[Rfam]
RNA: Lysine riboswitch aptamer
Organism: Exiguobacterium chiriqhucha
RNA sequence: CGAUGAGGUAGAGGUGCGAUGCUGAUGAGUAAGUAGUCCGAGGAUGACAACGGUGAAGACUACAGAAAGGCAAGAUCGCCGAAGUGUAAAGUCAUGUCUCUGACUUUGUGCUGGGCUGACGGGAAAUACCCGUCAGACUGCCAUACAUAUUUACGUAUGGAGCGCUCCAAGUCGG
Numbered sequence: 001c002g003a004u005g006a007g008g009u010a011g012a013g014g015u016g017c018g019a020u021g022c023u024g025a026u027g028a029g030u031a032a033g034u035a036g037u038c039c040g041a042g043g044a045u046g047a048c049a050a051c052g053g054u055g056a057a058g059a060c061u062a063c064a065g066a067a068a069g070g071c072a073a074g075a076u077c078g079c080c081g082a083a084g085u086g087u088a089a090a091g092u093c094a095u096g097u098c099u100c101u102g103a104c105u106u107u108g109u110g111c112u113g114g115g116c117u118g119a120c121g122g123g124a125a126a127u128a129c130c131c132g133u134c135a136g137a138c139u140g141c142c143a144u145a146c147a148u149a150u151u152u153a154c155g156u157a158u159g160g161a162g163c164g165c166u167c168c169a170a171g172u173c174g175g
Stems, first nucleotide, its partner, number of pairs: 008168001010166002016079005023072002033063006083112012113139002116136008141160006